[Rfam]
RNA sequence: GAUAUGCGAUGAUGUAUGAGGUUGCGUCAUAACCCACGACGGUAAUUCAUACGGAGUAUGUCCGAUUUUAAACCGGGCGA
Number, nucleotide and partner (000 for none) at each position: 001g000002a000003u000004a000005u000006g000007c000008g000009a000010u000011g000012a000013u000014g052015u051016a050017u000018g048019a047020g046021g000022u000023u000024g000025c041026g040027u039028c038029a000030u000031a000032a000033c000034c000035c000036a000037c000038g028039a027040c026041g025042g000043u000044a000045a000046u020047u019048c018049a000050u016051a015052c014053g000054g000055a000056g000057u000058a000059u079060g078061u077062c076063c075064g074065a000066u000067u000068u000069u000070a000071a000072a000073c000074c064075g063076g062077g061078c060079g059080a000